mir-1388 microRNA precursor family: a 96-nucleotide RNA from Clupea harengus.
RNA sequence: UUUUGAGCGGCGCUUUCAAGGACUGUCCAUCCUGAGAAUGGUGAAAUGUCUCAGGCACAAUCUCAGGUUCGUCAGCCCAUGAAACGCUGCUUUCCU
Number, nucleotide and partner (000 for none) at each position: 001u000002u000003u000004u000005g093006a092007g091008c089009g088010g087011c086012g085013c000014u084015u083016u082017c081018a000019a000020g078021g077022a000023c075024u074025g073026u000027c071028c000029a069030u000031c067032c066033u065034g064035a063036g062037a061038a000039u059040g058041g000042u000043g000044a000045a000046a000047u000048g000049u000050c000051u000052c000053a000054g000055g000056c000057a000058c040059a039060a000061u037062c036063u035064c034065a033066g032067g031068u000069u029070c000071g027072u000073c025074a024075g023076c000077c021078c020079a000080u000081g017082a016083a015084a014085c012086g011087c010088u009089g008090c000091u007092u006093u005094c000095c000096u000
NCBI's taxonomy places the organism under Eukaryota, Opisthokonta, Actinopteri, Clupeinae, Clupea. It scores 78 bits against the family's covariance model.